A member of the RNA family "ALIL pseudoknot" from Tritonibacter multivorans, 117 nucleotides long.
A reference for the family is Mazauric et al. (2008), "Apical loop-internal loop RNA pseudoknots: a new type of stimulator of -1 translational frameshifting in bacteria", J Biol Chem.
It scores 103 bits against the family's covariance model.
The family's consensus secondary structure is taken from published work.
RNA sequence: UGCUUAUUUUGCGCAGGCGGAGCUCGACCGCCCGUUCCGCAAAUGAUCGCCUUCAUCAAGGAUCACCAAAGCGUGCAUGGGGUCGAGCCGAUGUGCCGGGUCCUGCAAAUCGCCCCG
Dot-bracket structure: ...............(((((.......))))).............................................(((((......((.(.(((.(....).))).).)))))))